[Rfam]
RNA sequence: ACCUGCAUCGAAAGUGAUUGUGGUUUGAUCGGUGGCCCAGUCAUUGAUACUGCAGGGAAAGCAAGCCUUGAAAGAUUUUCCCGUGUUUGGUUGUAAUUUGUACAUUCCAAACCCUGUUCCUUUCAAACA
Numbered sequence: 001a002c003c004u005g006c007a008u009c010g011a012a013a014g015u016g017a018u019u020g021u022g023g024u025u026u027g028a029u030c031g032g033u034g035g036c037c038c039a040g041u042c043a044u045u046g047a048u049a050c051u052g053c054a055g056g057g058a059a060a061g062c063a064a065g066c067c068u069u070g071a072a073a074g075a076u077u078u079u080c081c082c083g084u085g086u087u088u089g090g091u092u093g094u095a096a097u098u099u100g101u102a103c104a105u106u107c108c109a110a111a112c113c114c115u116g117u118u119c120c121u122u123u124c125a126a127a128c129a
Base pairs, nucleotide, nucleotide: 002056003055004054005053006052007051013045014044015043016042017041018040019039020038022037023036024035025034069125070124071123072122073121074120085112086111087110088109089108090106092104093103094102
Small nucleolar RNA SNORA71: a 129-nucleotide RNA from Aquarana catesbeiana. By type it is an H/ACA-box small nucleolar RNA. Pairs were carried over by alignment from the consensus structure, which was predicted with PFOLD. Rfam's curators write: The members of this family belong to the H/ACA class of snoRNAs which bind a number of proteins (including dyskerin, Gar1p and Nop10p) to form snoRNP complexes. This class of snoRNAs are thought to guide the sites of modification of uridines to pseudouridines by forming direct base pairing interactions with substrate RNAs. This family includes U71 (SNORA71), ACA39 (SNORA39) and ACA60 (SNORA60). U71 and ACA60 are predicted to guide the pseudouridylation of U406 and U1004 in 18S rRNA respectively. NCBI's taxonomy places the organism under Eukaryota, Chordata, Dipnotetrapodomorpha, Batrachia, Aquarana. On this family, see Ganot et al., Genes Dev 1997: "The family of box ACA small nucleolar RNAs is defined by an evolutionarily conserved secondary structure and ubiquitous sequence elements essential for RNA accumulation". It scores 92 bits against the family's covariance model.